[Rfam]
Shown here is a 110-nucleotide RNA from Cellulomonas fimi, a member of the family "SAM (S-adenosyl methionine) riboswitch aptamer".
Nucleotides: 110
Stems, first nucleotide, its partner, number of pairs: 001077004009039001011038006022031002040064003045060003049055002080099008
Number, partner (000 for none) and nucleotide at each position: 001077g002076g003075u004074c005000a006000c007000g008000a009039g010000c011038a012037c013036c014035a015034g016033c017000a018000c019000g020000c021000a022031a023030g024000c025000c026000c027000c028000g029000g030023c031022u032000c033016g034015c035014u036013g037012g038011u039009c040064a041063g042062c043000a044000a045060c046059c047058c048000c049055u050054c051000c052000a053000c054050g055049a056000c057000g058047g059046g060045g061000u062042g063041c064040u065000c066000c067000g068000g069000g070000a071000g072000a073000u074004g075003a076002c077001c078000c079000g080099g081098c082097c083096g084095c085094g086093c087092c088000a089000c090000c091000c092087g093086g094085u095084g096083c097082g098081g099080c100000a101000a102000g103000c104000g105000u106000g107000a108000a109000c110000g
Pairs were carried over by alignment from the consensus structure, which is taken from published work. The organism belongs to Cellulomonas fimi, within Bacteria.